[Rfam]
The record is a 116-nucleotide RNA from Labilithrix luteola, which matches "SAM (S-adenosyl methionine) riboswitch aptamer" in Rfam. It scores 109 bits against the family's covariance model.
RNA sequence: GGUCAAGAGUGCCAGCGUCAAGUCCCGGCUUGCUGGCCGACAACCCUCCGACCGCGGUGGGGUGCCCCCGGGAGAGACCAGGCCCGUUGCAGUAGCGCGACGGGCAAGCGCGGACU
Numbered sequence: 001g002g003u004c005a006a007g008a009g010u011g012c013c014a015g016c017g018u019c020a021a022g023u024c025c026c027g028g029c030u031u032g033c034u035g036g037c038c039g040a041c042a043a044c045c046c047u048c049c050g051a052c053c054g055c056g057g058u059g060g061g062g063u064g065c066c067c068c069c070g071g072g073a074g075a076g077a078c079c080a081g082g083c084c085c086g087u088u089g090c091a092g093u094a095g096c097g098c099g100a101c102g103g104g105c106a107a108g109c110g111c112g113g114a115c116u
Base pairs, nucleotide, nucleotide: 001079002078003077004076009038011037012036013035014034015033016032021030022029039066041064044062045061046060048057049056082105083104084103085102086101087100088099089098090097

Pairs were carried over by alignment from the consensus structure, which is taken from published work.